[Rfam]
RNA sequence: GCGAGAUGACGAUGAGAUUCAUACAUAGUCUGUCAAUCCACUGAUUUAUUGUGAUGUUACUCUUGAAUCAUCGAGAUGUAUUCCGAUCGC
Numbered sequence: 001g002c003g004a005g006a007u008g009a010c011g012a013u014g015a016g017a018u019u020c021a022u023a024c025a026u027a028g029u030c031u032g033u034c035a036a037u038c039c040a041c042u043g044a045u046u047u048a049u050u051g052u053g054a055u056g057u058u059a060c061u062c063u064u065g066a067a068u069c070a071u072c073g074a075g076a077u078g079u080a081u082u083c084c085g086a087u088c089g090c
Stems, first nucleotide, its partner, number of pairs: 001090004